[Rfam]
RNA sequence: AAUAAUGUGUGAUGAAAAACAUGGAUUUGCAUAUUCUUGUGCCCUAUAGGUAAUGAGGAUUUUUUUCCAUGCCUGCCUUCCUUCUGACAUUAUU
Number, nucleotide and partner (000 for none) at each position: 001a094002a093003u092004a091005a090006u000007g000008u000009g000010u000011g000012a000013u000014g000015a000016a000017a000018a000019a000020c000021a000022u000023g000024g000025a000026u000027u000028u000029g000030c000031a000032u000033a000034u000035u000036c000037u000038u000039g000040u000041g000042c000043c000044c000045u000046a000047u000048a000049g000050g000051u000052a000053a000054u000055g000056a000057g000058g000059a000060u000061u000062u000063u000064u000065u000066u000067c000068c000069a000070u000071g000072c000073c000074u000075g000076c000077c000078u000079u000080c000081c000082u000083u000084c000085u000086g000087a000088c000089a000090u005091u004092a003093u002094u001
The record is a 94-nucleotide RNA sequence from Biomphalaria glabrata, which matches "Small nucleolar RNA U83B" in Rfam. For this family Rfam cites "Characterisation of the U83 and U84 small nucleolar RNAs: two novel 2'-O-ribose methylation guide RNAs that lack complementarities to ribosomal RNAs" (Jady and Kiss, Nucleic Acids Res, 2000). It is annotated as a C/D-box small nucleolar RNA. The source organism's lineage runs through Eukaryota, Eumetazoa, Bilateria, Lymnaeoidea and Biomphalaria.